RNA sequence: AAAAAGAAUAGAAGUGCUGAAAGCAUUAUUAAAUCAUUGAGGAGUCAUCCUAGGAAAUGAUUGAAAGGGCCUAAGCCGAAUCAAUAAUCUGAAAAAUUAUUGAUGCCUUUUAAGGGAAUACCUUAAUUGCUUCACAAAUGUGAGGGCACUAUGAUAAUA
Numbered sequence: 001a002a003a004a005a006g007a008a009u010a011g012a013a014g015u016g017c018u019g020a021a022a023g024c025a026u027u028a029u030u031a032a033a034u035c036a037u038u039g040a041g042g043a044g045u046c047a048u049c050c051u052a053g054g055a056a057a058u059g060a061u062u063g064a065a066a067g068g069g070c071c072u073a074a075g076c077c078g079a080a081u082c083a084a085u086a087a088u089c090u091g092a093a094a095a096a097u098u099a100u101u102g103a104u105g106c107c108u109u110u111u112a113a114g115g116g117a118a119u120a121c122c123u124u125a126a127u128u129g130c131u132u133c134a135c136a137a138a139u140g141u142g143a144g145g146g147c148a149c150u151a152u153g154a155u156a157a158u159a
Base pairs, nucleotide, nucleotide: 008152009151010150011149016076017075018074020072023070024069032062033061034060035059036058037057038056080104081103082102083101084100085099086098087097088096090094105131107129110126111125112124113123114122115121132143133142134141135140
Notes
Rfam assigns this 159-nucleotide sequence from Mycoplasma marinum to the family "Lysine riboswitch aptamer". For this family Rfam cites "Riboswitches Control Fundamental Biochemical Pathways in Bacillus subtilis and Other Bacteria" (Mandal et al., Cell, 2003). The match comes from Rfam's covariance-model search (50 bits). The source organism's lineage runs through Bacteria, Bacillati, Mollicutes, Mycoplasmatales and Mycoplasma. Rfam describes the family as follows. Riboswitches are metabolite binding domains within certain messenger RNAs that serve as precision sensors for their corresponding targets.